[Rfam]
RNA sequence: AUUUCUAAAUCGCUUAAUCCAUUUGGAACGGGGAACCCAUUAUUUGUGGCUUCUCUUUGCCGCUUGGGGUGAAUCCUACUAUUGUAGGUAGGGCUACUCUUUAGCCCAAACCCGACAGCUAACUCCGUAAGCGUUAUGAGAGAGAAAUA
Numbered sequence: 001a002u003u004u005c006u007a008a009a010u011c012g013c014u015u016a017a018u019c020c021a022u023u024u025g026g027a028a029c030g031g032g033g034a035a036c037c038c039a040u041u042a043u044u045u046g047u048g049g050c051u052u053c054u055c056u057u058u059g060c061c062g063c064u065u066g067g068g069g070u071g072a073a074u075c076c077u078a079c080u081a082u083u084g085u086a087g088g089u090a091g092g093g094c095u096a097c098u099c100u101u102u103a104g105c106c107c108a109a110a111c112c113c114g115a116c117a118g119c120u121a122a123c124u125c126c127g128u129a130a131g132c133g134u135u136a137u138g139a140g141a142g143a144g145a146a147a148u149a
Base pairs, nucleotide, nucleotide: 011133012132013131014130018027019026020025028128029127030126031125032124033123038066039065067113068112069111075088076087077086078085091107092106093105094104

c-di-AMP riboswitch aptamer (ydaO/yuaA leader): a 149-nucleotide sequence from Paenisporosarcina sp. HGH0030. Taxonomically the source falls in Paenisporosarcina (Bacteria, Bacillati, Bacillota, Caryophanales).